RNA sequence: CUAUCGGAGAGUUUGAUCCUGGCUCAGAACGAACGCUGGCGGCGUGGAUUAGGCAUGCAAGUCGUGCGAGAAAGAGGGCUUCGGCCCUUGAGUACAGCGGCGAACUGGUGAGUAACAGGUGGGUAACGUGCCCUGAAGUGGGGGAUAACACCGGGAAACCGGUGCUAAUACCGCAUGUGAUCUUUUGGUUCAUGGACCGGAAGGUUAAAGCAGUAGUGCGCUUCAGGAUCGGCCCGCCCCCGAUUAGCUUGUUGGUGAGGUUACGGCUCACCAAGGCAUCGAUCGGUAGCUGGUCUGAGAGGAUGGUCAGCCACACUGGGACUGAGAUACGGCCCAGACUCCUACGGGGGGCAGCAGUCUAGAGGCUUCGGCAAUGGGGGCAACCCUGACCGAGCGACGCCGCGUGUGGGAUUGAAGGCCUUCGGGUCGUAAACCACUGUCAUUGGGGAAGAAUGCCUGAAUGGUGAAUUCAGGAGGGACGGUACCCGAGAAGGAAGCCCCGGCUAACUCCGUGCCAGCAGCCGCGGUAAUACGGAGGGGGCAAGCGUUGUUCGGAUUUACUG
Numbered sequence: 001c002u003a004u005c006g007g008a009g010a011g012u013u014u015g016a017u018c019c020u021g022g023c024u025c026a027g028a029a030c031g032a033a034c035g036c037u038g039g040c041g042g043c044g045u046g047g048a049u050u051a052g053g054c055a056u057g058c059a060a061g062u063c064g065u066g067c068g069a070g071a072a073a074g075a076g077g078g079c080u081u082c083g084g085c086c087c088u089u090g091a092g093u094a095c096a097g098c099g100g101c102g103a104a105c106u107g108g109u110g111a112g113u114a115a116c117a118g119g120u121g122g123g124u125a126a127c128g129u130g131c132c133c134u135g136a137a138g139u140g141g142g143g144g145a146u147a148a149c150a151c152c153g154g155g156a157a158a159c160c161g162g163u164g165c166u167a168a169u170a171c172c173g174c175a176u177g178u179g180a181u182c183u184u185u186u187g188g189u190u191c192a193u194g195g196a197c198c199g200g201a202a203g204g205u206u207a208a209a210g211c212a213g214u215a216g217u218g219c220g221c222u223u224c225a226g227g228a229u230c231g232g233c234c235c236g237c238c239c240c241c242g243a244u245u246a247g248c249u250u251g252u253u254g255g256u257g258a259g260g261u262u263a264c265g266g267c268u269c270a271c272c273a274a275g276g277c278a279u280c281g282a283u284c285g286g287u288a289g290c291u292g293g294u295c296u297g298a299g300a301g302g303a304u305g306g307u308c309a310g311c312c313a314c315a316c317u318g319g320g321a322c323u324g325a326g327a328u329a330c331g332g333c334c335c336a337g338a339c340u341c342c343u344a345c346g347g348g349g350g351g352c353a354g355c356a357g358u359c360u361a362g363a364g365g366c367u368u369c370g371g372c373a374a375u376g377g378g379g380g381c382a383a384c385c386c387u388g389a390c391c392g393a394g395c396g397a398c399g400c401c402g403c404g405u406g407u408g409g410g411a412u413u414g415a416a417g418g419c420c421u422u423c424g425g426g427u428c429g430u431a432a433a434c435c436a437c438u439g440u441c442a443u444u445g446g447g448g449a450a451g452a453a454u455g456c457c458u459g460a461a462u463g464g465u466g467a468a469u470u471c472a473g474g475a476g477g478g479a480c481g482g483u484a485c486c487c488g489a490g491a492a493g494g495a496a497g498c499c500c501c502g503g504c505u506a507a508c509u510c511c512g513u514g515c516c517a518g519c520a521g522c523c524g525c526g527g528u529a530a531u532a533c534g535g536a537g538g539g540g541g542c543a544a545g546c547g548u549u550g551u552u553c554g555g556a557u558u559u560a561c562u563g
Stems, first nucleotide, its partner, number of pairs: 009025005027553004032549006039403006045396002052359003056356003061101003066098002070093001074089006108314003118238007127231002132227007140174001142172002149164006180205010210219003240286003247277003252274008289311004293304004316337005339350004367393001369392003375388005406437004417428004441494001443489005451480001456474005497542005508537005518525002
Dot-bracket structure: ........(((((.......))))).((((.((((((.((((((((.....(((.(((..(((..((..(...((((((....))))))...)...)))))......(((.......(((((((..((...(((((((.(.((.....((((((....))))))......)).).....((((((((((......))))))))))....(((....))).)))))))..))))))))).(((....(((..((((((((.......)))))))))))......)))..((((((((....))))...))))))).(((((............))))).((((....))))...)))))).......(.(((...(((((....))))).)))).)).))))))..((((.......((((....)))).....))))...(.(((((...(....(((((.........))))).....)....)))))....)..(((((......(((((.....((....)).......)))))))))).))))))))))..........